[Rfam]
RNA sequence: CGCGCCCCCGCGCCGCGGGAGCCGGGGACCCACUGCUUCUGGGGUGAAUCCGCCGCGUGCGGUAGGGCGGCUCCUGGCCCGAACCCGUCAGCUAACCCGGUAGGCGGUCCCAGAGGAGAUAA
Numbered sequence: 001c002g003c004g005c006c007c008c009c010g011c012g013c014c015g016c017g018g019g020a021g022c023c024g025g026g027g028a029c030c031c032a033c034u035g036c037u038u039c040u041g042g043g044g045u046g047a048a049u050c051c052g053c054c055g056c057g058u059g060c061g062g063u064a065g066g067g068c069g070g071c072u073c074c075u076g077g078c079c080c081g082a083a084c085c086c087g088u089c090a091g092c093u094a095a096c097c098c099g100g101u102a103g104g105c106g107g108u109c110c111c112a113g114a115g116g117a118g119a120u121a122a
Base pairs, nucleotide, nucleotide: 001103006019007018021101022100023099024098025097026096031041032040042086043085044084050062051061052060053059065080066079067078068077
The record is a 122-nucleotide sequence from Thermomonospora curvata, which matches "c-di-AMP riboswitch aptamer (ydaO/yuaA leader)" in Rfam.
Pairs were carried over by alignment from the consensus structure.
Lineage of the source: Bacteria > Bacillati > Actinomycetota > Actinomycetes > Thermomonospora curvata.
The match comes from Rfam's covariance-model search (72 bits).
This family represents a conserved RNA structure found upstream of the ydaO and yuaA genes in Bacillus subtilis and related genes in other bacteria.